RNA sequence: AUUUUCCCCGGCAAAAUGCCGGGGCCUCAUUGAAGC
Numbered sequence: 001a002u003u004u005u006c007c008c009c010g011g012c013a014a015a016a017u018g019c020c021g022g023g024g025c026c027u028c029a030u031u032g033a034a035g036c
Base pairs, nucleotide, nucleotide: 006024007023008022009021010020011019012018

The record is a 36-nucleotide RNA sequence from Acidihalobacter ferrooxydans, which matches "CRISPR RNA direct repeat element" in Rfam.
Taxonomically the source falls in Acidihalobacter (Bacteria, Pseudomonadati, Pseudomonadota, Chromatiales).